[Rfam]
RNA sequence: GAGUGUGGCGUCCAGCAAGGAUCCGCAGAAUCCUUCCCUCUGCCGAAGGGGCUGGACACAUACUC
Numbered sequence: 001g002a003g004u005g006u007g008g009c010g011u012c013c014a015g016c017a018a019g020g021a022u023c024c025g026c027a028g029a030a031u032c033c034u035u036c037c038c039u040c041u042g043c044c045g046a047a048g049g050g051g052c053u054g055g056a057c058a059c060a061u062a063c064u065c
Stems, first nucleotide, its partner, number of pairs: 001065007010057005017035006037049003
Shown here is a 65-nucleotide RNA sequence from Ignelater luminosus, a member of the family "bZIP non canonical Hac1/Xbp1 intron". On this family, see Hooks and Griffiths-Jones, RNA Biol 2011: "Conserved RNA structures in the non-canonical Hac1/Xbp1 intron". By type it is a small RNA. The family's consensus secondary structure was predicted with RNAfold. Rfam describes the family as follows. bZIP intron RNA is a non-canonical intron that was first reported in HAC1 gene in yeast and XBP1 gene in Metazoa.